A member of the RNA family "Lysine riboswitch aptamer" from Weizmannia acidilactici, 178 nucleotides long.
A reference for the family is Mandal et al. (2003), "Riboswitches Control Fundamental Biochemical Pathways in Bacillus subtilis and Other Bacteria", Cell.
The source organism's lineage runs through Bacteria, Bacillota, Bacilli, Caryophanales and Heyndrickxia.
Rfam links the family to the GO term lysine biosynthetic process.
RNA sequence: GUUCAUGAUAGAGGCGCGGGGCUUAAGAGUAAAGGGCCGGAGAAGAUUGGGCUUCUGUGAAGGUUCUUGAAAGGAAGUUCCGCCGAAGUGAAAAUGGCCUCAAUGCCAUUUUUGCUGGUUCUGUAUUGAAGAAAUCCAGAACUGUCAAGAUGGAAUAUCUUGGAGCGCUAUCUCAUAA
Number, nucleotide and partner (000 for none) at each position: 001g000002u000003u000004c000005a000006u000007g172008a171009u170010a169011g168012a000013g000014g000015c000016g083017c082018g081019g080020g079021g078022c077023u076024u075025a000026a000027g000028a000029g000030u000031a000032a068033a067034g066035g065036g064037c063038c062039g000040g000041a000042g000043a000044a000045g000046a000047u000048u000049g000050g000051g000052c000053u000054u000055c000056u000057g000058u000059g000060a000061a000062g038063g037064u036065u035066c034067u033068u032069g000070a000071a000072a000073g000074g000075a024076a023077g022078u021079u020080c019081c018082g017083c016084c000085g000086a000087a116088g115089u114090g113091a112092a111093a110094a109095u108096g107097g106098c105099c000100u000101c000102a000103a000104u000105g098106c097107c096108a095109u094110u093111u092112u091113u090114g089115c088116u087117g143118g142119u141120u140121c139122u138123g137124u000125a135126u134127u133128g000129a000130a000131g000132a000133a127134a126135u125136c000137c123138a122139g121140a120141a119142c118143u117144g000145u163146c162147a161148a160149g159150a158151u157152g000153g000154a000155a000156u000157a151158u150159c149160u148161u147162g146163g145164a000165g000166c000167g000168c011169u010170a009171u008172c007173u000174c000175a000176u000177a000178a000